[Rfam]
RNA sequence: GCCCAAAUCGCACGUGCCUGUGGUCGUGGUCGAUCGGUGGGAAUCCGGACAAGAGGCCGGUGAACUGCCAACGAGAUUGAUAGCCGGAGCGAACCGGCGAACCCCGUCGCAACGGGGGACGCGACUUAAAGCAACGACGGACCGGGCUUUU
Numbered sequence: 001g002c003c004c005a006a007a008u009c010g011c012a013c014g015u016g017c018c019u020g021u022g023g024u025c026g027u028g029g030u031c032g033a034u035c036g037g038u039g040g041g042a043a044u045c046c047g048g049a050c051a052a053g054a055g056g057c058c059g060g061u062g063a064a065c066u067g068c069c070a071a072c073g074a075g076a077u078u079g080a081u082a083g084c085c086g087g088a089g090c091g092a093a094c095c096g097g098c099g100a101a102c103c104c105c106g107u108c109g110c111a112a113c114g115g116g117g118g119a120c121g122c123g124a125c126u127u128a129a130a131g132c133a134a135c136g137a138c139g140g141a142c143c144g145g146g147c148u149u150u151u
Stems, first nucleotide, its partner, number of pairs: 001147004008137003015133003022126005036069005045060004077097003098121001102117006
Dot-bracket structure: ((((...(((....(((....(((((.........(((((....((((........))))....))))).......(((...............)))(...((((((....))))))...))))))....))).)))......))))....